Shown here is a 125-nucleotide sequence from Brassica cretica, a member of the family "MIR9563 microRNA precursor family". Lineage of the source: Eukaryota > Embryophyta > Mesangiospermae > Pentapetalae > Brassica. Gene Ontology terms of the family: miRNA-mediated post-transcriptional gene silencing and RISC complex.
[Rfam]
RNA sequence: GUAAUAUAAGAACGGUCUCUUAACUUUUAACUAAAAAAGUAAAGAACCGGUUCUUAAAACUCUUAUUUAAGAACCGGUUCUUAGUUUUUUUCAGUUAAAAGUUAAGAGACGGGUUCUUAUAUUCC
Numbered sequence: 001g002u003a004a005u006a007u008a009a010g011a012a013c014g015g016u017c018u019c020u021u022a023a024c025u026u027u028u029a030a031c032u033a034a035a036a037a038a039g040u041a042a043a044g045a046a047c048c049g050g051u052u053c054u055u056a057a058a059a060c061u062c063u064u065a066u067u068u069a070a071g072a073a074c075c076g077g078u079u080c081u082u083a084g085u086u087u088u089u090u091u092c093a094g095u096u097a098a099a100a101g102u103u104a105a106g107a108g109a110c111g112g113g114u115u116c117u118u119a120u121a122u123u124c125c
Stems, first nucleotide, its partner, number of pairs: 001125001003123011015110018034091005040083001042082005